[Rfam]
Shown here is a 74-nucleotide RNA from Cnephaeus nilssonii, a member of the family "tRNA". Transfer RNA (tRNA) molecules are approximately 80 nucleotides in length. The base pairs follow the family's consensus structure, which is taken from published work.
RNA sequence: GGCCAGUUAGCUCAGUUGGUUAGAGCAUGGUGCUAAUAGCACCAAGGUAGUGGGUUCGAUCCCCAUAUGGGCCA
Numbered sequence: 001g002g003c004c005a006g007u008u009a010g011c012u013c014a015g016u017u018g019g020u021u022a023g024a025g026c027a028u029g030g031u032g033c034u035a036a037u038a039g040c041a042c043c044a045a046g047g048u049a050g051u052g053g054g055u056u057c058g059a060u061c062c063c064c065a066u067a068u069g070g071g072c073c074a
Base pairs, nucleotide, nucleotide: 001073002072003071004070006068007067010026011025012024013023028044029043030042031041032040050066051065052064053063054062